[Rfam]
MIR2670 microRNA precursor family: a 207-nucleotide RNA from Medicago truncatula. Rfam links the family to the GO terms RISC complex and miRNA-mediated post-transcriptional gene silencing.
RNA sequence: UUUGGGGGAAGUAGUGGUCCGUUAGGUUGGGGAAAAAGACAUCAUCCCUUGACGUAAAAUUAGAUUUGGUUCCUUUUACUCCCAAAAUCUUUUUACCGUGAGUAAAAAGAAUCAUCAUGAGGGGUAUAAAAGGAACCAAAUUUAAAUUUAAUUCAAGGGGUAUUGAUAUCGUUUUCCCCAACAUGACGAAUCACUAUUUUUCCCAAG
Numbered sequence: 001u002u003u004g005g006g007g008g009a010a011g012u013a014g015u016g017g018u019c020c021g022u023u024a025g026g027u028u029g030g031g032g033a034a035a036a037a038g039a040c041a042u043c044a045u046c047c048c049u050u051g052a053c054g055u056a057a058a059a060u061u062a063g064a065u066u067u068g069g070u071u072c073c074u075u076u077u078a079c080u081c082c083c084a085a086a087a088u089c090u091u092u093u094u095a096c097c098g099u100g101a102g103u104a105a106a107a108a109g110a111a112u113c114a115u116c117a118u119g120a121g122g123g124g125u126a127u128a129a130a131a132g133g134a135a136c137c138a139a140a141u142u143u144a145a146a147u148u149u150a151a152u153u154c155a156a157g158g159g160g161u162a163u164u165g166a167u168a169u170c171g172u173u174u175u176c177c178c179c180a181a182c183a184u185g186a187c188g189a190a191u192c193a194c195u196a197u198u199u200u201u202c203c204c205a206a207g
Stems, first nucleotide, its partner, number of pairs: 003205016020188004026182010041167004045160003049156004055150004060145009070135007077126006083119002089109008